Description: The family of this 172-nucleotide sequence from Streptomyces hoynatensis is "Streptomyces RNA 1601". The match comes from Rfam's covariance-model search (107 bits). Identified by deep sequencing of transcriptome at the end of exponential growth phase. By type it is a small RNA. Pairs were carried over by alignment from the consensus structure.
RNA sequence: UGUGACCGGUCGGACAUACGCGUGUCCGACCCGCAAGUGGAGGCUCCGCUCUCCCACCUCACCGGCCCUCCGGGUCGGCAGGUCUCAGGUCAGGCUGCGCCCCGCGGUGUUCUGCGGCGGUGCUCCCGGUCGAUUGUGGAGCCCCGCCUGCGUGCCGUCCGGGGCGUUUUUC
Numbered sequence: 001u002g003u004g005a006c007c008g009g010u011c012g013g014a015c016a017u018a019c020g021c022g023u024g025u026c027c028g029a030c031c032c033g034c035a036a037g038u039g040g041a042g043g044c045u046c047c048g049c050u051c052u053c054c055c056a057c058c059u060c061a062c063c064g065g066c067c068c069u070c071c072g073g074g075u076c077g078g079c080a081g082g083u084c085u086c087a088g089g090u091c092a093g094g095c096u097g098c099g100c101c102c103c104g105c106g107g108u109g110u111u112c113u114g115c116g117g118c119g120g121u122g123c124u125c126c127c128g129g130u131c132g133a134u135u136g137u138g139g140a141g142c143c144c145c146g147c148c149u150g151c152g153u154g155c156c157g158u159c160c161g162g163g164g165c166g167u168u169u170u171u172c
Stems, first nucleotide, its partner, number of pairs: 004091004009086001012027002028084004035059001037057004041052002062078006099165006105157003112152001114151002116148005122142005